[Rfam]
RNA: DUF3577 RNA
RNA sequence: CGGAACUUAUAAGGCAGCGUGCUGCCGAAAUCGUCUGCAAUCCGGACAGCCGCACAUAUGCGGUGACGACACUUCUCUUCUGCCGUCGCAUGACGGCUCCUCA
Numbered sequence: 001c002g003g004a005a006c007u008u009a010u011a012a013g014g015c016a017g018c019g020u021g022c023u024g025c026c027g028a029a030a031u032c033g034u035c036u037g038c039a040a041u042c043c044g045g046a047c048a049g050c051c052g053c054a055c056a057u058a059u060g061c062g063g064u065g066a067c068g069a070c071a072c073u074u075c076u077c078u079u080c081u082g083c084c085g086u087c088g089c090a091u092g093a094c095g096g097c098u099c100c101u102c103a
Stems, first nucleotide, its partner, number of pairs: 013026005031069005050063005082097005